[Rfam]
This 84-nucleotide RNA from Fonsecaea multimorphosa belongs to the Rfam family "Small nucleolar RNA R38". From the family's description: snoR38 is a C/D box small nucleolar RNA conserved across yeast, human, Arabidopsis and rice. Rfam classes the family as a C/D-box small nucleolar RNA. The organism belongs to Fonsecaea multimorphosa, within Eukaryota. The family's consensus secondary structure was predicted with PFOLD. A reference for the family is Chen et al. (2003), "The high diversity of snoRNAs in plants: identification and comparative study of 120 snoRNA genes from Oryza sativa", Nucleic Acids Res.
RNA sequence: UGCCCUCAAAGAUGAGCCAUAUUAUCAAUUCAGUUAUCCCUGUCUGAACAACGCUUGUUGACUACAUUUUACUCUGAGAGACUA
Numbered sequence: 001u002g003c004c005c006u007c008a009a010a011g012a013u014g015a016g017c018c019a020u021a022u023u024a025u026c027a028a029u030u031c032a033g034u035u036a037u038c039c040c041u042g043u044c045u046g047a048a049c050a051a052c053g054c055u056u057g058u059u060g061a062c063u064a065c066a067u068u069u070u071a072c073u074c075u076g077a078g079a080g081a082c083u084a
Stems, first nucleotide, its partner, number of pairs: 001084002005080003